Rfam assigns this 345-nucleotide part of an RNA from Amblyospora rugosa to the family "Microsporidia small subunit ribosomal RNA".
Gene Ontology terms of the family: ribosome and structural constituent of ribosome.
Rfam 15.1 lists 1,035 matches to the family in 436 species.
A reference for the family is Cannone et al. (2002), "The comparative RNA web (CRW) site: an online database of comparative sequence and structure information for ribosomal, intron, and other RNAs", BMC Bioinformatics.
It is one of the family's seed sequences.
The organism belongs to Amblyospora, within Eukaryota.
RNA sequence: CGGUUAAAAUGUGCGUAGUCUGGUUGCGGGCCUGAGUCAAAGACGCACUUUCGUGGUGUGGAGGAUUUCAGGAACCCAGGCCUUGAGACAGGGAAGAGGUGACGAUAUUUGGUUGUGAGAGGUGAAAAUCGAUGACCUGCUAAGGAGCGACAGAGGCGAAAGCGGUCACCAGGAACUGAUCUGACGAUCAAGCACGUGAGCAGGAGUAUCGAAGAGGAUUAGAGACCCACGUAGUUCCUUGCAGUCAACGAUGCCAACAGUGUGGUGGAACAUCCAUUGCGCGAGCGAAAGCUAGUUUGUAGGCUCCGGGGAUAGUACGGACGCAAGUUUGAAACUUGAAGAAAU
Numbered sequence: 001c002g003g004u005u006a007a008a009a010u011g012u013g014c015g016u017a018g019u020c021u022g023g024u025u026g027c028g029g030g031c032c033u034g035a036g037u038c039a040a041a042g043a044c045g046c047a048c049u050u051u052c053g054u055g056g057u058g059u060g061g062a063g064g065a066u067u068u069c070a071g072g073a074a075c076c077c078a079g080g081c082c083u084u085g086a087g088a089c090a091g092g093g094a095a096g097a098g099g100u101g102a103c104g105a106u107a108u109u110u111g112g113u114u115g116u117g118a119g120a121g122g123u124g125a126a127a128a129u130c131g132a133u134g135a136c137c138u139g140c141u142a143a144g145g146a147g148c149g150a151c152a153g154a155g156g157c158g159a160a161a162g163c164g165g166u167c168a169c170c171a172g173g174a175a176c177u178g179a180u181c182u183g184a185c186g187a188u189c190a191a192g193c194a195c196g197u198g199a200g201c202a203g204g205a206g207u208a209u210c211g212a213a214g215a216g217g218a219u220u221a222g223a224g225a226c227c228c229a230c231g232u233a234g235u236u237c238c239u240u241g242c243a244g245u246c247a248a249c250g251a252u253g254c255c256a257a258c259a260g261u262g263u264g265g266u267g268g269a270a271c272a273u274c275c276a277u278u279g280c281g282c283g284a285g286c287g288a289a290a291g292c293u294a295g296u297u298u299g300u301a302g303g304c305u306c307c308g309g310g311g312a313u314a315g316u317a318c319g320g321a322c323g324c325a326a327g328u329u330u331g332a333a334a335c336u337u338g339a340a341g342a343a344a345u
Stems, first nucleotide, its partner, number of pairs: 001308003011195004018188003086182003089178003098170006104148001108144006115137001119130002156163002200242002202239004210234001214230001216228002253304003256297003260282010285292002310337002319330004